[Rfam]
Record summary
The record is a 131-nucleotide RNA sequence from Bacillus sp. FJAT-27986, which matches "FMN riboswitch aptamer (RFN element)" in Rfam.

RNA sequence: GUCUAUCUUCGGGGCAGGGUGAAAUUCCCUACCGGCGGUGAUGAUUUAUAAUCUAAGCCCGCGAGCCUGUAAAGGCAGGAUUUGGUGAGAUUCCAAAGCCGACAGUAUAGUCUGGAUGGGAGAAGAUGGAG
Dot-bracket structure: ..((((((((......(((.......))).[[((((((..................[[))))....(.......).....(((((.......)))))]])).(((....]]))).......))))))))..

The base pairs follow the family's consensus structure, which is taken from published work.